[Rfam]
RNA: Glycine riboswitch aptamer
RNA sequence: CGCGACGAUGCGGGAGAGACCGGGAUCCACCCACCAGAGGGGGACCCGGCGCCGACGGAGCAACCGCCCCGGAAACUCUCAGGCACCGGAACCGUGUCGUCAGG
Number, nucleotide and partner (000 for none) at each position: 001c000002g000003c000004g000005a000006c099007g098008a097009u096010g095011c094012g093013g092014g000015a000016g000017a000018g000019a000020c049021c048022g047023g046024g000025a000026u000027c000028c000029a000030c000031c000032c000033a000034c000035c000036a000037g000038a000039g000040g000041g000042g000043g000044a000045c000046c023047c022048g021049g020050c000051g084052c083053c082054g080055a079056c000057g000058g078059a077060g076061c000062a000063a000064c072065c071066g000067c000068c000069c000070c000071g065072g064073a000074a000075a000076c060077u059078c058079u055080c054081a000082g053083g052084c051085a000086c000087c000088g000089g000090a000091a000092c013093c012094g011095u010096g009097u008098c007099g006100u000101c000102a000103g000104g000